This 127-nucleotide sequence from Myotis myotis belongs to the Rfam family "Small nucleolar RNA SNORA42/SNORA80 family". Lineage of the source: Eukaryota > Chordata > Teleostomi > Laurasiatheria > Myotis. Its family is annotated with nucleolus and RNA processing in the Gene Ontology.
[Rfam]
RNA sequence: GCAUGGGUUUGAACGGAUGGCAGGCCCGUCCCCCUGGGUCUCCCAUGUGCCCCGUGCCAGAGCAAGCUGCGGCCUUGAACCAUUGCCCGGGCCGUAGGCUGCAGGCACUGAAGCAGGUUGCACAGGG
Number, nucleotide and partner (000 for none) at each position: 001g057002c056003a055004u054005g052006g051007g050008u049009u000010u000011g000012a000013a000014c000015g000016g000017a046018u045019g044020g043021c000022a041023g040024g039025c037026c036027c000028g000029u000030c000031c000032c000033c000034c000035u000036g026037g025038g000039u024040c023041u022042c000043c020044c019045a018046u017047g000048u000049g008050c007051c006052c005053c000054g004055u003056g002057c001058c000059a000060g000061a000062g000063c000064a000065a000066g000067c000068u000069g000070c120071g119072g118073c117074c116075u115076u000077g000078a000079a000080c000081c110082a109083u000084u000085g000086c105087c104088c101089g100090g099091g000092c097093c000094g000095u000096a000097g092098g000099c090100u089101g088102c000103a000104g087105g086106c000107a000108c000109u082110g081111a000112a000113g000114c000115a075116g074117g073118u072119u071120g070121c000122a000123c000124a000125g000126g000127g000